A member of the RNA family "U7 small nuclear RNA" from Mus musculus, 63 nucleotides long. The base pairs follow the family's consensus structure, which was predicted with PFOLD. A reference for the family is Spycher et al. (1994), "3' end processing of mouse histone pre-mRNA: evidence for additional base-pairing between U7 snRNA and pre-mRNA", Nucleic Acids Res. NCBI's taxonomy places the organism under Eukaryota, Teleostomi, Glires, Muridae, Mus. The match comes from Rfam's covariance-model search (49 bits). Animal histone pre-mRNAs are spliced by a different mechanism than nuclear pre-mRNAs and self-splicing introns. This processing involves the U7 snRNP, which contains only one RNA species: U7. The 5' end of U7 RNA is thought to base-pair to a conserved spacer element downstream of the cleavage site in histone pre-mRNA. This family contains a number of annotated U7 pseudogenes.

RNA sequence: GAGUGAGCACAGAUCUUUUAGAAUUUUUCUAACAGGAUUUCUGACCUUGGUCAGAAAACCCAC
Numbered sequence: 001g002a003g004u005g006a007g008c009a010c011a012g013a014u015c016u017u018u019u020a021g022a023a024u025u026u027u028u029c030u031a032a033c034a035g036g037a038u039u040u041c042u043g044a045c046c047u048u049g050g051u052c053a054g055a056a057a058a059c060c061c062a063c
Stems, first nucleotide, its partner, number of pairs: 035060002038057008